[Rfam]
RNA sequence: UGAAAUAAAUUGAUAUAACUUCGUAUAACUCCAUUAAUAUGGUAUGGGGGUAUCUACCGGGGACCAAUAAUUCCUGCUUACGAAGAGGAUACGCUAUGCG
Numbered sequence: 001u002g003a004a005a006u007a008a009a010u011u012g013a014u015a016u017a018a019c020u021u022c023g024u025a026u027a028a029c030u031c032c033a034u035u036a037a038u039a040u041g042g043u044a045u046g047g048g049g050g051u052a053u054c055u056a057c058c059g060g061g062g063a064c065c066a067a068u069a070a071u072u073c074c075u076g077c078u079u080a081c082g083a084a085g086a087g088g089a090u091a092c093g094c095u096a097u098g099c100g
Stems, first nucleotide, its partner, number of pairs: 019085007029049006058076006

A member of the RNA family "Purine riboswitch aptamer" from Anaeromicrobium sediminis, 100 nucleotides long. The base pairs follow the family's consensus structure, which is taken from published work. Rfam links the family to the GO term purine nucleobase biosynthetic process. A search with the family's covariance model found it, with a score of 67 bits. About the family: Riboswitches are metabolite binding domains within certain messenger RNAs that serve as precision sensors for their corresponding targets.